About this RNA
Rfam assigns this 80-nucleotide RNA sequence from Pelusios castaneus to the family "Small nucleolar RNA SNORD74". For this family Rfam cites "Purified box C/D snoRNPs are able to reproduce site-specific 2'-O-methylation of target RNA in vitro" (Galardi et al., Mol Cell Biol, 2002). The source organism's lineage runs through Eukaryota, Deuterostomia, Sarcopterygii, Sauria and Pelusios. Gene Ontology terms of the family: nucleolus and RNA processing.
[Rfam]
RNA sequence: ACAUAGCUGCAUAUGAUGAAAACCAUGUUGGUAGGGACAUCUGAGAGUGUGAUGAGUACCAACAUCUCUGAGCUGUAUGU
Numbered sequence: 001a002c003a004u005a006g007c008u009g010c011a012u013a014u015g016a017u018g019a020a021a022a023c024c025a026u027g028u029u030g031g032u033a034g035g036g037a038c039a040u041c042u043g044a045g046a047g048u049g050u051g052a053u054g055a056g057u058a059c060c061a062a063c064a065u066c067u068c069u070g071a072g073c074u075g076u077a078u079g080u
Stems, first nucleotide, its partner, number of pairs: 001080005